Source information
Streptomyces-metH RNA: a 120-nucleotide sequence from Streptomyces wuyuanensis. Pairs were carried over by alignment from the consensus structure, which is taken from published work. Taxonomically the source falls in Streptomyces (Bacteria, Bacillati, Actinomycetota, Streptomycetaceae).
[Rfam]
RNA sequence: GGAGUCCAACUCCUGGACCGCUCCGCCGCGCCGGGCCCGGCACGGCUAGGCUGGCCGGGUGCGCCUUCCAAGAGAAGCCGCAAAGCCGACAGCCGUCGCACUCCAGGGAGCACCUUCAUG
Numbered sequence: 001g002g003a004g005u006c007c008a009a010c011u012c013c014u015g016g017a018c019c020g021c022u023c024c025g026c027c028g029c030g031c032c033g034g035g036c037c038c039g040g041c042a043c044g045g046c047u048a049g050g051c052u053g054g055c056c057g058g059g060u061g062c063g064c065c066u067u068c069c070a071a072g073a074g075a076a077g078c079c080g081c082a083a084a085g086c087c088g089a090c091a092g093c094c095g096u097c098g099c100a101c102u103c104c105a106g107g108g109a110g111c112a113c114c115u116u117c118a119u120g
Stems, first nucleotide, its partner, number of pairs: 060082004065077004085099002088097003